[Rfam]
RNA sequence: UGCCAAAUCGCAGGAGAGUGAGUUUAAUCUCUGCCGAAGGCGCAAACUCCCAUAAACGCUCAGGCUCAUGGACUGCGAACAACGA
Number, nucleotide and partner (000 for none) at each position: 001u000002g000003c000004c000005a000006a000007a000008u078009c077010g076011c075012a074013g073014g000015a000016g000017a000018g000019u000020g031021a030022g029023u000024u000025u000026a000027a000028u000029c022030u021031c020032u000033g065034c064035c063036g061037a060038a000039g000040g059041c058042g057043c000044a000045a000046a053047c000048u000049c000050c000051c000052a000053u046054a000055a000056a000057c042058g041059c040060u037061c036062a000063g035064g034065c033066u000067c000068a000069u000070g000071g000072a000073c013074u012075g011076c010077g009078a008079a000080c000081a000082a000083c000084g000085a000
RNA: Glycine riboswitch aptamer
Organism: Wohlfahrtiimonas chitiniclastica